[Rfam]
RNA sequence: AUCCCUUUUUUAAAGCACCCUGCUAAAAUUGGGAGGGCGAUGCCUCACGGCUUGGCUCUUGCAAGCAUGUAAGCACGGGUACACCAAGGAAGGAGAGAAAAGGCACAGUGUCGCAAAUGAGGCUAUGGCGGACCUCUUUCUUAAUGUCCAAUGUCCUUUGUCUCAAGGCUACUGAAAUGU
Numbered sequence: 001a002u003c004c005c006u007u008u009u010u011u012a013a014a015g016c017a018c019c020c021u022g023c024u025a026a027a028a029u030u031g032g033g034a035g036g037g038c039g040a041u042g043c044c045u046c047a048c049g050g051c052u053u054g055g056c057u058c059u060u061g062c063a064a065g066c067a068u069g070u071a072a073g074c075a076c077g078g079g080u081a082c083a084c085c086a087a088g089g090a091a092g093g094a095g096a097g098a099a100a101a102g103g104c105a106c107a108g109u110g111u112c113g114c115a116a117a118u119g120a121g122g123c124u125a126u127g128g129c130g131g132a133c134c135u136c137u138u139u140c141u142u143a144a145u146g147u148c149c150a151a152u153g154u155c156c157u158u159u160g161u162c163u164c165a166a167g168g169c170u171a172c173u174g175a176a177a178u179g180u
Stems, first nucleotide, its partner, number of pairs: 018079002021075004028068002034059002037056002040053001042051003106174005125154001127152001130149003
The family of this 180-nucleotide sequence from Salvelinus namaycush is "Small nucleolar RNA SNORA81". Rfam links the family to the GO terms nucleolus and RNA processing. Taxonomically the source falls in Salvelinus (Eukaryota, Chordata, Craniata, Osteoglossocephalai). The literature on the family includes a 2005 paper in Nucleic Acids Res by Gu et al., "A novel experimental approach for systematic identification of box H/ACA snoRNAs from eukaryotes". A search with the family's covariance model found it, with a score of 84 bits.